[Rfam]
RNA: Betaproteobacteria toxic small RNA
Organism: Glaciimonas sp. PCH181
RNA sequence: UGUCUCCUCCAACACCUCAUAGGUUUGGAUUUAACCCGCUAACGCAUGUUCGCGGGUUUUUUUUU
Numbered sequence: 001u002g003u004c005u006c007c008u009c010c011a012a013c014a015c016c017u018c019a020u021a022g023g024u025u026u027g028g029a030u031u032u033a034a035c036c037c038g039c040u041a042a043c044g045c046a047u048g049u050u051c052g053c054g055g056g057u058u059u060u061u062u063u064u065u
Stems, first nucleotide, its partner, number of pairs: 008029005013022001033058007